[Rfam]
RNA: Fluoride riboswitch aptamer (crcB RNA motif)
RNA sequence: GAUACGAUCGGCGAUGGAGUUCGCCAUAACCGCCAAGAGCUGAUGACUCCUGCCAGUGC
Numbered sequence: 001g002a003u004a005c006g007a008u009c010g011g012c013g014a015u016g017g018a019g020u021u022c023g024c025c026a027u028a029a030c031c032g033c034c035a036a037g038a039g040c041u042g043a044u045g046a047c048u049c050c051u052g053c054c055a056g057u058g059c
Base pairs, nucleotide, nucleotide: 010025011024012023013022016050017049018048019047020046021045032040033039